[Rfam]
RNA sequence: GGUUUCCAUUGGUGCAAAUCCAAUCACCUAGAUUUGAGAUGAAAAGCAAUUCCCCAUUGGUAGAAAUGUUAUCUUAAGAGGAGGAAAAAUAAG
Numbered sequence: 001g002g003u004u005u006c007c008a009u010u011g012g013u014g015c016a017a018a019u020c021c022a023a024u025c026a027c028c029u030a031g032a033u034u035u036g037a038g039a040u041g042a043a044a045a046g047c048a049a050u051u052c053c054c055c056a057u058u059g060g061u062a063g064a065a066a067u068g069u070u071a072u073c074u075u076a077a078g079a080g081g082a083g084g085a086a087a088a089a090u091a092a093g
Stems, first nucleotide, its partner, number of pairs: 009023004052083001054081002059073005
RNA: Plastid-rps12 3UTR RNA